RNA sequence: ACUACCAUCUUACUGGGCAGCAUUGGAUGAGUUCUGUGUUUCUAAUACUGCCUGGUAAUGAUGAUGGC
Numbered sequence: 001a002c003u004a005c006c007a008u009c010u011u012a013c014u015g016g017g018c019a020g021c022a023u024u025g026g027a028u029g030a031g032u033u034c035u036g037u038g039u040u041u042c043u044a045a046u047a048c049u050g051c052c053u054g055g056u057a058a059u060g061a062u063g064a065u066g067g068c
Stems, first nucleotide, its partner, number of pairs: 002067003006063004010058011022046006

The record is a 68-nucleotide RNA sequence from Ornithorhynchus anatinus, which matches "mir-8/mir-141/mir-200 microRNA precursor family" in Rfam. Rfam's curators put it in the seed alignment. On this family, see Lagos-Quintana et al., RNA 2003: "New microRNAs from mouse and human".